[Rfam]
RNA sequence: UAAAAGGGCCUCUGCCGUUCAUGGCACAUGGGAUGGUCAAAUUGGCCGCAAGUCCUGUGCGGAAUCGCAAUCAAGAGAUUUCGGAGGCAAAAUUUUUAUAGAUUGAGGCGGCUGAUGCUCACAAAGGCUCGGCGCCCUG
Number, nucleotide and partner (000 for none) at each position: 001u000002a000003a000004a000005a000006g000007g000008g088009c087010c086011u085012c084013u026014g025015c024016c023017g022018u000019u000020c000021a000022u017023g016024g015025c014026a013027c059028a058029u057030g056031g055032g054033a053034u052035g047036g046037u045038c044039a000040a000041a000042u000043u000044g038045g037046c036047c035048g000049c000050a000051a000052g034053u033054c032055c031056u030057g029058u028059g027060c083061g082062g081063a080064a079065u078066c077067g000068c000069a000070a000071u000072c000073a000074a000075g000076a000077g066078a065079u064080u063081u062082c061083g060084g012085a011086g010087g009088c008089a000090a000091a000092a000093u000094u000095u000096u000097u000098a000099u000100a000101g000102a000103u000104u000105g000106a000107g136108g135109c134110g000111g133112c132113u131114g130115a129116u000117g128118c127119u126120c000121a000122c000123a000124a000125a000126g119127g118128c117129u115130c114131g113132g112133c111134g109135c108136c107137c000138u000139g000

A member of the RNA family "U11 spliceosomal RNA" from Candidula unifasciata, 139 nucleotides long.